[Rfam]
Nematode sRNA ceN72-3_ceN74-2: a 180-nucleotide RNA sequence from Caenorhabditis brenneri.

RNA sequence: CACAUCGGUCCGGAGUUGAUGGGUUAUCAGUACUUUUCACUUACUUCUGCUUGCAGGAGUAAACCCCCGGUUUCCAUCGGAAACCAAACCCCUCGUUCUUCAGAUUCAUCUGAACUGAACACCCACUUCGCUAGUACCAACAGGCGAAACCCAACCCCAUCAACACCACUUGACCGUUGU
Numbered sequence: 001c002a003c004a005u006c007g008g009u010c011c012g013g014a015g016u017u018g019a020u021g022g023g024u025u026a027u028c029a030g031u032a033c034u035u036u037u038c039a040c041u042u043a044c045u046u047c048u049g050c051u052u053g054c055a056g057g058a059g060u061a062a063a064c065c066c067c068c069g070g071u072u073u074c075c076a077u078c079g080g081a082a083a084c085c086a087a088a089c090c091c092c093u094c095g096u097u098c099u100u101c102a103g104a105u106u107c108a109u110c111u112g113a114a115c116u117g118a119a120c121a122c123c124c125a126c127u128u129c130g131c132u133a134g135u136a137c138c139a140a141c142a143g144g145c146g147a148a149a150c151c152c153a154a155c156c157c158c159a160u161c162a163a164c165a166c167c168a169c170u171u172g173a174c175c176g177u178u179g180u
Base pairs, nucleotide, nucleotide: 002180003179004178006176007175008174009173010172012167013166015164016163017162018161019160020159021158022157023156043060044059045058046057047056048055049054071083072082073081074080093147094146095145096144097143

Record summary: The source organism's lineage runs through Eukaryota, Rhabditomorpha, Rhabditoidea, Rhabditidae and Caenorhabditis.